ATPC RNA motif: a 92-nucleotide RNA. By type it is a non-coding RNA gene. A reference for the family is Weinberg et al. (2007), "Identification of 22 candidate structured RNAs in bacteria using the CMfinder comparative genomics pipeline", Nucleic Acids Res. The base pairs follow the family's consensus structure, which is taken from published work.

RNA sequence: UUCGCUCUAACCCGGCGAUCUGCUAAACACUUCGCGCGCAGGUCCGGCUGCUGACCGGGCCCUUCCCUGAUUCCAGGGUUGUCCCAGGCGCC
Numbered sequence: 001u002u003c004g005c006u007c008u009a010a011c012c013c014g015g016c017g018a019u020c021u022g023c024u025a026a027a028c029a030c031u032u033c034g035c036g037c038g039c040a041g042g043u044c045c046g047g048c049u050g051c052u053g054a055c056c057g058g059g060c061c062c063u064u065c066c067c068u069g070a071u072u073c074c075a076g077g078g079u080u081g082u083c084c085c086a087g088g089c090g091c092c
Stems, first nucleotide, its partner, number of pairs: 002018005036091004041061007062081001065078004
Dot-bracket structure: .(((((.......))))).................((((.(((((((.......)))))))(..((((......))))..)......)))).